Shown here is a 51-nucleotide sequence from Polerovirus CPLRV, a member of the family "Exoribonuclease-resistant RNA (xrRNA) plant-infecting virus (class 3)". The family's RNA type in Rfam is cis-regulatory element.

[Rfam]
RNA sequence: AAUCAGCCGGGUAUACGUCAGUUGCAAACGCCGGAGAUAUCACUCUGACUA
Numbered sequence: 001a002a003u004c005a006g007c008c009g010g011g012u013a014u015a016c017g018u019c020a021g022u023u024g025c026a027a028a029c030g031c032c033g034g035a036g037a038u039a040u041c042a043c044u045c046u047g048a049c050u051a
Base pairs, nucleotide, nucleotide: 001038003036007034008033010032011029012028017049018048019047020046021045
Its family is annotated with viral RNA genome replication in the Gene Ontology. About the family: Exoribonuclease-resistant RNA (xrRNA) plant-infecting virus (class 3) is a ncRNA that was reported in Plant viruses. The source organism's lineage runs through Viruses, Orthornavirae, Solemoviridae, Polerovirus and Polerovirus CPLRV. On this family, see Gezelle et al., bioRxiv [Preprint] 2024: "The pseudoknot structure of a viral RNA reveals a conserved mechanism for programmed exoribonuclease resistance".